Overview:
Shown here is an 86-nucleotide sequence from Lactococcus lactis, a member of the family "ctRNA". The sequence is in the family's curated seed alignment. It is annotated as an antisense RNA. Rolling circle replication plasmids contain a number of mechanisms to maintain a low copy number. One of these methods is to transcribe a small RNA called ctRNA (for counter-transcribed RNA) than is transcribed on the opposite strand to RepB the replication initiation protein. ctRNA binds to the mRNA of repB and causes translational inhibition.
RNA sequence: UAGAAAACUGCUCCUUUGUGAGUGAGUUUAGAUAAGCAUGAAGAAACACUUUUCGUAGAGAGAUUCUUCAUGCUUUUAUUAUAUCA
Dot-bracket structure: ...(((..(((((......)))))..)))....((((((((((((..................))))))))))))...........
Numbered sequence: 001u002a003g004a005a006a007a008c009u010g011c012u013c014c015u016u017u018g019u020g021a022g023u024g025a026g027u028u029u030a031g032a033u034a035a036g037c038a039u040g041a042a043g044a045a046a047c048a049c050u051u052u053u054c055g056u057a058g059a060g061a062g063a064u065u066c067u068u069c070a071u072g073c074u075u076u077u078a079u080u081a082u083a084u085c086a
Stems, first nucleotide, its partner, number of pairs: 004029003009024005034075012